Record summary:
The family of this 117-nucleotide RNA from Osyris alba is "Plastid-psbA-1 3UTR RNA". The sequence is in the family's curated seed alignment. Rfam's curators write: Plastid psbA-1 is a non-coding RNA (ncRNA) present in plastids. By type it is a cis-regulatory element. The base pairs follow the family's consensus structure, which was predicted with LocARNA. The literature on the family includes a 2023 paper in Plant Commun by Richter et al., "Retrograde signaling in plants: A critical review focusing on the GUN pathway and beyond".

[Rfam]
RNA sequence: GUUGAAGUUCCAUCCGCAAAAGGAUAACACUUCCAUCUUAGUGUAUACGAGGUAUUGAAGGUAAAGGAGCAAUAUCAAUCUUCUUGAUAGAACAAGAAAUAGGUUAUUGCUCCUUUA
Numbered sequence: 001g002u003u004g005a006a007g008u009u010c011c012a013u014c015c016g017c018a019a020a021a022g023g024a025u026a027a028c029a030c031u032u033c034c035a036u037c038u039u040a041g042u043g044u045a046u047a048c049g050a051g052g053u054a055u056u057g058a059a060g061g062u063a064a065a066g067g068a069g070c071a072a073u074a075u076c077a078a079u080c081u082u083c084u085u086g087a088u089a090g091a092a093c094a095a096g097a098a099a100u101a102g103g104u105u106a107u108u109g110c111u112c113c114u115u116u117a
Base pairs, nucleotide, nucleotide: 009024010023011022013020063116064115065114066113067112068111069110070109071108072107073106074105081098082097083096084095085094

Its Rfam clan is "Plastid-psbA 3UTR RNA clan".